[Rfam]
RNA sequence: UUACGGGCAAGGCGCAAUGCGCGUAUAAGUCGGGAAUCGGCCCGAACGUCUCUACCCGGAAACCCUAAUUUCCGGACUACGCGGCAAUCGUCAACGACA
Numbered sequence: 001u002u003a004c005g006g007g008c009a010a011g012g013c014g015c016a017a018u019g020c021g022c023g024u025a026u027a028a029g030u031c032g033g034g035a036a037u038c039g040g041c042c043c044g045a046a047c048g049u050c051u052c053u054a055c056c057c058g059g060a061a062a063c064c065c066u067a068a069u070u071u072c073c074g075g076a077c078u079a080c081g082c083g084g085c086a087a088u089c090g091u092c093a094a095c096g097a098c099a
Stems, first nucleotide, its partner, number of pairs: 020083006029047001030045005056075007
The family of this 99-nucleotide sequence from Cohnella herbarum is "Purine riboswitch aptamer". Rfam describes the family as follows. Riboswitches are metabolite binding domains within certain messenger RNAs that serve as precision sensors for their corresponding targets. Allosteric rearrangement of mRNA structure is mediated by ligand binding, and this results in modulation of gene expression. The source organism's lineage runs through Bacteria, Bacillota, Caryophanales, Paenibacillaceae and Cohnella.